This 119-nucleotide RNA from Capsicum annuum belongs to the Rfam family "U5 spliceosomal RNA". NCBI's taxonomy places the organism under Eukaryota, Streptophytina, Mesangiospermae, Gunneridae, Capsicum. The match comes from Rfam's covariance-model search (78 bits). Rfam's curators write: U5 RNA is a component of both types of known spliceosome.
[Rfam]
RNA sequence: AGCCACGCAGUGGGCACAGAGCGAGCUAUCCUUUCGCCUUUUACUAAAGAAUACCGUGUGUGCGCUGCAUUUAGUGGCAUACGCCAACUUUUGGAGGGGUUUCUCUUCUUUAGAGUACC
Numbered sequence: 001a002g003c004c005a006c007g008c009a010g011u012g013g014g015c016a017c018a019g020a021g022c023g024a025g026c027u028a029u030c031c032u033u034u035c036g037c038c039u040u041u042u043a044c045u046a047a048a049g050a051a052u053a054c055c056g057u058g059u060g061u062g063c064g065c066u067g068c069a070u071u072u073a074g075u076g077g078c079a080u081a082c083g084c085c086a087a088c089u090u091u092u093g094g095a096g097g098g099g100u101u102u103c104u105c106u107u108c109u110u111u112a113g114a115g116u117a118c119c
Base pairs, nucleotide, nucleotide: 003077004076005075006074008067009066010065011064012063014061015060016059017058018057027053028052029051031049032048033047034046101117103115104114105113